Annotation
Rfam assigns this 155-nucleotide sequence from Araneus ventricosus to the family "U12 minor spliceosomal RNA". It is annotated as a spliceosomal small nuclear RNA.

[Rfam]
RNA sequence: GUGCUUUAAACUAAUGAGUAAAGAAAUUAACGUGACACGGUAACGAUUGGCACUACCGAGCAUUCCUUAGUGCCAAUUUUUGACAGGGUAUACACAGGUCGACCCUGUGCGACUUGCCUACUUAUGCAGGCUGCCUCUGAAUUGUAAACAGUAGA
Numbered sequence: 001g002u003g004c005u006u007u008a009a010a011c012u013a014a015u016g017a018g019u020a021a022a023g024a025a026a027u028u029a030a031c032g033u034g035a036c037a038c039g040g041u042a043a044c045g046a047u048u049g050g051c052a053c054u055a056c057c058g059a060g061c062a063u064u065c066c067u068u069a070g071u072g073c074c075a076a077u078u079u080u081u082g083a084c085a086g087g088g089u090a091u092a093c094a095c096a097g098g099u100c101g102a103c104c105c106u107g108u109g110c111g112a113c114u115u116g117c118c119u120a121c122u123u124a125u126g127c128a129g130g131c132u133g134c135c136u137c138u139g140a141a142u143u144g145u146a147a148a149c150a151g152u153a154g155a
Base pairs, nucleotide, nucleotide: 004023005022006021007020008019032053033052034051036049037048055071056070058068059067089155091153092152093151097149099147101145105139107136109134110133111132113130114129115128116127117126
The family has 62 seed sequences and 2,106 matches in Rfam 15.1. The pairing is the family consensus, mapped onto this sequence. The organism belongs to Araneus, within Eukaryota.